[Rfam]
RNA sequence: CAAGCAGGUUGGGCAGUUACAUGCUUUUGCAUGAGGAAAGUCCGAGCCCCAUAGAGCAGAAUAACGGCUAACGGCCGCCGAGGGUAACCUUAGGGACAGUGCAACAGAGAUAUACCGCCGCUUUUGCGGUAAGGGUGGAAAGGCGAGGUAAGAGCUCACCGAUUGCGUGGAAACAUUGCGAUCCUGUAAACCCUAUUCGGGGCAACACCGACCGAUUAGGCUUGCUCGGCCUAUCAUUUCGAAGGGUGGCUCGAGCUGCGGAGUAAUUCGCAGCCUGGAUAGAUAAUUGCCUUAAAUGACAGAACUCGGCUUACAGACCUGCUUGUAUG
Dot-bracket structure: ((((((((((((((((((.(((((....)))))....[[[.[[[[[((((...[[[[.(((((.((((.....)))).(((((....)))).)((...(((((...........(((((((....)))))..)).......((.(((.......))).))(((((((((....))).))))).))))..)))))))))))))...((((....((..(((((.]]]]))))).)).........))))......((((((((....))))))))..........))))))).............]]]]]]]].).))))))))))....
The record is a 329-nucleotide sequence from Ruminococcus sp. CAG:563, which matches "Bacterial RNase P class A" in Rfam. Pairs were carried over by alignment from the consensus structure, which is taken from published work. It scores 260 bits against the family's covariance model. The family's RNA type in Rfam is ribozyme.